The record is an 85-nucleotide RNA sequence from Drosophila pseudoobscura, which matches "mir-2542 microRNA precursor family" in Rfam. Rfam 15.1 lists 8 matches to the family in 3 species. It is one of the family's seed sequences.

RNA sequence: GGGCUUAUAUUUGUAUUUUUGCUCGGACAUUUAUGUACAAUUUGAGCGUCAUAGAUGGUUGCAGCAUAAAUAGAAUUAUUAGCCC
Numbered sequence: 001g002g003g004c005u006u007a008u009a010u011u012u013g014u015a016u017u018u019u020u021g022c023u024c025g026g027a028c029a030u031u032u033a034u035g036u037a038c039a040a041u042u043u044g045a046g047c048g049u050c051a052u053a054g055a056u057g058g059u060u061g062c063a064g065c066a067u068a069a070a071u072a073g074a075a076u077u078a079u080u081a082g083c084c085c
Stems, first nucleotide, its partner, number of pairs: 001085005007079003011075002014072005020066004024061002028057008037049002